[Rfam]
RNA sequence: AUAUUUGAAUGAAAAAAUACGAUUCGGUUGGUAGUCCGAAUGCAUCACAAUUUUGAUGUCAAUAACCUUCCCCUCCUUGGGAUGUCCAUCAUUCGAGAUUAAUAU
Numbered sequence: 001a002u003a004u005u006u007g008a009a010u011g012a013a014a015a016a017a018u019a020c021g022a023u024u025c026g027g028u029u030g031g032u033a034g035u036c037c038g039a040a041u042g043c044a045u046c047a048c049a050a051u052u053u054u055g056a057u058g059u060c061a062a063u064a065a066c067c068u069u070c071c072c073c074u075c076c077u078u079g080g081g082a083u084g085u086c087c088a089u090c091a092u093u094c095g096a097g098a099u100u101a102a103u104a105u
Stems, first nucleotide, its partner, number of pairs: 004097008022041006042059006069082004
The record is a 105-nucleotide RNA sequence from Viridibacillus arenosi, which matches "azaaromatic riboswitch aptamer (yjdF RNA)" in Rfam. The family's consensus secondary structure is taken from published work.